[Rfam]
RNA sequence: AUUCCUUCUGUCGUGUAUUCCCGAUUGAUGCAACCUCGGAUACUAUGCUUCA
Numbered sequence: 001a002u003u004c005c006u007u008c009u010g011u012c013g014u015g016u017a018u019u020c021c022c023g024a025u026u027g028a029u030g031c032a033a034c035c036u037c038g039g040a041u042a043c044u045a046u047g048c049u050u051c052a
Stems, first nucleotide, its partner, number of pairs: 010025004032049001034047001